[Rfam]
RNA: Clostridiales-1 RNA
RNA sequence: UGAUACCAGGGUCAAAAGGUCAGAAAUCCGAUGCAAGCUUGCAAGAGGAUUUUUGACCUUUUGACCCGCCAAAAACAUGAAUAAGCAGCCAUUUUUCGUAGAAAAAUGAGCGGAUUAUGAAUGUUUCCCAGGAUUGCGGGAGCACGUAGUGCGAAACAAUCCGGUAUCA
Numbered sequence: 001u002g003a004u005a006c007c008a009g010g011g012u013c014a015a016a017a018g019g020u021c022a023g024a025a026a027u028c029c030g031a032u033g034c035a036a037g038c039u040u041g042c043a044a045g046a047g048g049a050u051u052u053u054u055g056a057c058c059u060u061u062u063g064a065c066c067c068g069c070c071a072a073a074a075a076c077a078u079g080a081a082u083a084a085g086c087a088g089c090c091a092u093u094u095u096u097c098g099u100a101g102a103a104a105a106a107u108g109a110g111c112g113g114a115u116u117a118u119g120a121a122u123g124u125u126u127c128c129c130a131g132g133a134u135u136g137c138g139g140g141a142g143c144a145c146g147u148a149g150u151g152c153g154a155a156a157c158a159a160u161c162c163g164g165u166a167u168c169a
Stems, first nucleotide, its partner, number of pairs: 001169007010066004017059013032044001033042003073126006081118004088111002090108008131162006142152004